RNA sequence: GUGGUUCUAGUUUAGUGAAAAACGUUUGCUUUGCAAGCAGAAAUCCUAAGUUAAAUUCUUAGGAACUACA
Dot-bracket structure: (((((((..((((......)))).(((((.......)))))....(((((.......)))))))))))).
Numbered sequence: 001g002u003g004g005u006u007c008u009a010g011u012u013u014a015g016u017g018a019a020a021a022a023c024g025u026u027u028g029c030u031u032u033g034c035a036a037g038c039a040g041a042a043a044u045c046c047u048a049a050g051u052u053a054a055a056u057u058c059u060u061a062g063g064a065a066c067u068a069c070a
Stems, first nucleotide, its partner, number of pairs: 001069007010023004025041005046062005